[Rfam]
RNA sequence: GAGAACUGACAAUCUGAUAGGUAGAAUGAUGGGGUAACGCCUUGAAAUGCCUACACUGAUACUCCGAUUGGCAAUGAAUAUUAGACUAUUUCAUUGUCAAAAGCUCGGUGAAGUCGGCAGAGAGUAGCCGUAAGACUGAUAUUAACAUCAGACACGAAAGCUGUUCAGAGGUGGACGGUGCUACCUAUAUGCCGGGUGUCGAAUAC
Numbered sequence: 001g002a003g004a005a006c007u008g009a010c011a012a013u014c015u016g017a018u019a020g021g022u023a024g025a026a027u028g029a030u031g032g033g034g035u036a037a038c039g040c041c042u043u044g045a046a047a048u049g050c051c052u053a054c055a056c057u058g059a060u061a062c063u064c065c066g067a068u069u070g071g072c073a074a075u076g077a078a079u080a081u082u083a084g085a086c087u088a089u090u091u092c093a094u095u096g097u098c099a100a101a102a103g104c105u106c107g108g109u110g111a112a113g114u115c116g117g118c119a120g121a122g123a124g125u126a127g128c129c130g131u132a133a134g135a136c137u138g139a140u141a142u143u144a145a146c147a148u149c150a151g152a153c154a155c156g157a158a159a160g161c162u163g164u165u166c167a168g169a170g171g172u173g174g175a176c177g178g179u180g181c182u183a184c185c186u187a188u189a190u191g192c193c194g195g196g197u198g199u200c201g202a203a204u205a206c
Stems, first nucleotide, its partner, number of pairs: 018053006031043004054198004064108004068100011115194005124184005129156003160179008